RNA sequence: AAAUGAGGCUCAACUUGGAGAGCCUCAGCCAAAUCCUGGGGAGGGUUUAGGCAUCCAAAUGGGUAGCAAUAGCUCCGUCCCUUUGGAGAGACGGUCCAGAGACCGGGCCAGUCAGACCCGGUCGGGAAAUCCGUCUU
Numbered sequence: 001a002a003a004u005g006a007g008g009c010u011c012a013a014c015u016u017g018g019a020g021a022g023c024c025u026c027a028g029c030c031a032a033a034u035c036c037u038g039g040g041g042a043g044g045g046u047u048u049a050g051g052c053a054u055c056c057a058a059a060u061g062g063g064u065a066g067c068a069a070u071a072g073c074u075c076c077g078u079c080c081c082u083u084u085g086g087a088g089a090g091a092c093g094g095u096c097c098a099g100a101g102a103c104c105g106g107g108c109c110a111g112u113c114a115g116a117c118c119c120g121g122u123c124g125g126g127a128a129a130u131c132c133g134u135c136u137u
Stems, first nucleotide, its partner, number of pairs: 005026007031048007054087004061081003066078002088137007101123007